[Rfam]
A member of the RNA family "U11 spliceosomal RNA" from Daphnia pulex, 136 nucleotides long.
The family is grouped with related families in Rfam's "U1 clan".
The base pairs follow the family's consensus structure, which is taken from published work.
NCBI's taxonomy places the organism under Eukaryota, Branchiopoda, Anomopoda, Daphniidae, Daphnia.
Rfam links the family to the GO terms mRNA 5'-splice site recognition, U11 snRNP and pre-mRNA 5'-splice site binding.

RNA sequence: UAAAAGGGUGCUUUCUACUAAAUGGUACACUCACUAAAAACCCUUAAAAGGGAUGGGUGAGUGGGGUAUGGCCAUCAAGACAUACCUAGCACAUAAUAUUUGGACUUGGGACAGUUGAUGUAACAUCGACGUCCCC
Numbered sequence: 001u002a003a004a005a006g007g008g009u010g011c012u013u014u015c016u017a018c019u020a021a022a023u024g025g026u027a028c029a030c031u032c033a034c035u036a037a038a039a040a041c042c043c044u045u046a047a048a049a050g051g052g053a054u055g056g057g058u059g060a061g062u063g064g065g066g067u068a069u070g071g072c073c074a075u076c077a078a079g080a081c082a083u084a085c086c087u088a089g090c091a092c093a094u095a096a097u098a099u100u101u102g103g104a105c106u107u108g109g110g111a112c113a114g115u116u117g118a119u120g121u122a123a124c125a126u127c128g129a130c131g132u133c134c135c136c
Stems, first nucleotide, its partner, number of pairs: 008092005013027001015025003028063008064087007109134004114130007
Dot-bracket structure: .......((((((.(((.....))).)((((((((....................))))))))(((((((..........))))))))))))................((((.(((((((...)))))))))))..